[Rfam]
This 94-nucleotide RNA sequence from Helianthus annuus belongs to the Rfam family "Small nucleolar RNA Z159/U59". Clan: SNORD59 clan. Lineage of the source: Eukaryota > Euphyllophyta > eudicotyledons > Pentapetalae > Helianthus. It scores 63 bits against the family's covariance model.
RNA sequence: UCCUCUGAUGAUGAUUCAAAUAAAAACAUCUGUUCUUCCGACGAUGAUAUCCAUCCAUGUGGAAACAAUUAUUGGAGACCUGAACCGAAGAGGC
Numbered sequence: 001u002c003c004u005c006u007g008a009u010g011a012u013g014a015u016u017c018a019a020a021u022a023a024a025a026a027c028a029u030c031u032g033u034u035c036u037u038c039c040g041a042c043g044a045u046g047a048u049a050u051c052c053a054u055c056c057a058u059g060u061g062g063a064a065a066c067a068a069u070u071a072u073u074g075g076a077g078a079c080c081u082g083a084a085c086c087g088a089a090g091a092g093g094c
Base pairs, nucleotide, nucleotide: 003092004091005090006089